[Rfam]
RNA sequence: CAUCCCAAUGAAGAAUGACUUAUGUCCAAAUUAAAAGUAGUGGACUGAUACAUUCAUGAUGAACAAUGUUAUUCUGAGGGAUU
Numbered sequence: 001c002a003u004c005c006c007a008a009u010g011a012a013g014a015a016u017g018a019c020u021u022a023u024g025u026c027c028a029a030a031u032u033a034a035a036a037g038u039a040g041u042g043g044a045c046u047g048a049u050a051c052a053u054u055c056a057u058g059a060u061g062a063a064c065a066a067u068g069u070u071a072u073u074c075u076g077a078g079g080g081a082u083u
Base pairs, nucleotide, nucleotide: 002082003081004080005079006078
Background: A member of the RNA family "Small nucleolar RNA R21" from Chenopodium quinoa, 83 nucleotides long. The family has 6 seed sequences and 472 matches in Rfam 15.1.